PreQ1 (pre queuosine) riboswitch aptamer: a 45-nucleotide sequence from Paenibacillus baekrokdamisoli. The organism belongs to Paenibacillus, within Bacteria. This family is a bacterial riboswitch that binds to the metabolite preQ1, an intermediate in the biosynthesis of the modified nucleoside queuosine from GTP. One example of this riboswitch is located in the leader of the Bacillus subtilis ykvJKLM (queCDEF) operon which encodes four genes necessary for queuosine production. PreQ1 binding to the riboswitch aptamer is thought to induce premature transcription termination within the leader to down-regulate expression of these genes. The pairing is the family consensus, mapped onto this sequence.
RNA sequence: UUGGGAGAGGUUCUAGCGACACCCUCUAUAAAAAACUAAGGAAAC
Number, nucleotide and partner (000 for none) at each position: 001u000002u000003g000004g000005g000006a027007g026008a025009g024010g023011u000012u000013c000014u000015a000016g037017c000018g000019a000020c000021a000022c000023c010024c009025u008026c007027u006028a000029u000030a000031a000032a000033a000034a000035a000036c000037u016038a000039a000040g000041g000042a000043a000044a000045c000